[Rfam]
RNA sequence: UAUAAAUUUUUCGAUAUAGAACACUCAUGUCGAUACAAUAAUUUUUAACUUUU
Numbered sequence: 001u002a003u004a005a006a007u008u009u010u011u012c013g014a015u016a017u018a019g020a021a022c023a024c025u026c027a028u029g030u031c032g033a034u035a036c037a038a039u040a041a042u043u044u045u046u047a048a049c050u051u052u053u
Base pairs, nucleotide, nucleotide: 011033012032013031014030015029016028017027
Shown here is a 53-nucleotide RNA sequence from Tamarix chinensis, a member of the family "Plastid-atpF group II-D1 intron". Pairs were carried over by alignment from the consensus structure, which was predicted with LocARNA. A reference for the family is Richter et al. (2023), "Retrograde signaling in plants: A critical review focusing on the GUN pathway and beyond", Plant Commun. The source organism's lineage runs through Eukaryota, Tracheophyta, Euphyllophyta, Gunneridae and Tamarix. Gene Ontology term of the family: Group II intron splicing. About the family: Plastid atpF is a non-coding RNA (ncRNA) recognised in plastids. It has been reported in the intron group II-D1 region of ATP synthase (atpF) genes.